[Rfam]
This 117-nucleotide sequence from Frankia nepalensis belongs to the Rfam family "SAM (S-adenosyl methionine) riboswitch aptamer".
Pairs were carried over by alignment from the consensus structure, which is taken from published work.
The source organism's lineage runs through Bacteria, Bacillati, Actinomycetota, Frankiales and Frankia.
Gene Ontology terms of the family: regulation of gene expression and S-adenosylmethionine metabolic process.
About the family: SAM-IV is a mRNA element that regulates gene expression via direct sensing of S-adenosylmethionine (SAM or AdoMet).
RNA sequence: GGUCAAGAGCGCCAGCGCCAAGCCCGGGCUUGCUGGCCGGCAACCCUCCUCCGCGGUGGGGUGCCCCCCGGGUCGAGACCAGGCCGCGCCGGGAAGUCCGGCGGGCAAGCGCGGACC
Number, nucleotide and partner (000 for none) at each position: 001g080002g079003u078004c077005a000006a000007g000008a000009g038010c000011g037012c036013c035014a034015g033016c032017g000018c000019c000020a000021a030022g029023c000024c000025c000026g000027g000028g000029c022030u021031u000032g016033c015034u014035g013036g012037c011038c009039g065040g064041c063042a000043a000044c061045c060046c059047u000048c056049c055050u000051c000052c000053g000054c000055g049056g048057u000058g000059g046060g045061g044062u000063g041064c040065c039066c000067c000068c000069c000070g000071g000072g000073u000074c000075g000076a000077g004078a003079c002080c001081a000082g000083g106084c105085c104086g000087c103088g102089c101090c100091g099092g098093g097094a000095a000096g000097u093098c092099c091100g090101g089102c088103g087104g085105g084106c083107a000108a000109g000110c000111g000112c000113g000114g000115a000116c000117c000